[Rfam]
RNA: U7 small nuclear RNA
RNA sequence: CUAUAUUAUGGCUCUUUUAGAAUUUGUUUACCAAGUUUUCUGGUUUUCACCAAAAAACCCUC
Numbered sequence: 001c002u003a004u005a006u007u008a009u010g011g012c013u014c015u016u017u018u019a020g021a022a023u024u025u026g027u028u029u030a031c032c033a034a035g036u037u038u039u040c041u042g043g044u045u046u047u048c049a050c051c052a053a054a055a056a057a058c059c060c061u062c
Stems, first nucleotide, its partner, number of pairs: 035058005041052004